[Rfam]
RNA sequence: UAACAUUGUUAAACUCCCAUUAACCGAGACCUAUGGGGAGUAUAAAUUACGUCUCUCAUAUCCCGCCUGAGGGUGGCGGGAGCAUAGUAACUCCA
Numbered sequence: 001u002a003a004c005a006u007u008g009u010u011a012a013a014c015u016c017c018c019a020u021u022a023a024c025c026g027a028g029a030c031c032u033a034u035g036g037g038g039a040g041u042a043u044a045a046a047u048u049a050c051g052u053c054u055c056u057c058a059u060a061u062c063c064c065g066c067c068u069g070a071g072g073g074u075g076g077c078g079g080g081a082g083c084a085u086a087g088u089a090a091c092u093c094c095a
Stems, first nucleotide, its partner, number of pairs: 014040005021035002026055005061081007
RNA: PhotoRC-II RNA